The record is an 81-nucleotide RNA from Betacoronavirus muris, which matches "Coronavirus frameshifting stimulation element" in Rfam.

RNA sequence: GGGUUCGGGGUACAAGUGUAAAUGCCCGUCUUGUACCCUGUGCCAGUGGCUUGGACACUGAUGUUCAAUUAAGGGCAUUUG
Numbered sequence: 001g002g003g004u005u006c007g008g009g010g011u012a013c014a015a016g017u018g019u020a021a022a023u024g025c026c027c028g029u030c031u032u033g034u035a036c037c038c039u040g041u042g043c044c045a046g047u048g049g050c051u052u053g054g055a056c057a058c059u060g061a062u063g064u065u066c067a068a069u070u071a072a073g074g075g076c077a078u079u080u081g
Stems, first nucleotide, its partner, number of pairs: 008038009023077005042065001044063002049058001
By type it is a frameshift element. Taxonomically the source falls in Murine coronavirus (Viruses, Pisoniviricetes, Nidovirales, Betacoronavirus). About the family: This family represents a conserved stem-loop found in Coronaviruses which can promote ribosomal frameshifting. It scores 65 bits against the family's covariance model. The literature on the family includes a 2020 paper in bioRxiv by Zhang et al., "Cryo-electron Microscopy and Exploratory Antisense Targeting of the 28-kDa Frameshift Stimulation Element from the SARS-CoV-2 RNA Genome".